[Rfam]
RNA sequence: GAAACCUCAUCUUCGAUCUAUGCCAUCCGGGCGUUGAUGAGUGUUUCCAGCACGGGCGUUCGCCCAGAUGAGGAGAGAGU
Numbered sequence: 001g002a003a004a005c006c007u008c009a010u011c012u013u014c015g016a017u018c019u020a021u022g023c024c025a026u027c028c029g030g031g032c033g034u035u036g037a038u039g040a041g042u043g044u045u046u047c048c049a050g051c052a053c054g055g056g057c058g059u060u061c062g063c064c065c066a067g068a069u070g071a072g073g074a075g076a077g078a079g080u
Stems, first nucleotide, its partner, number of pairs: 005073008016038003020034005041053004054065004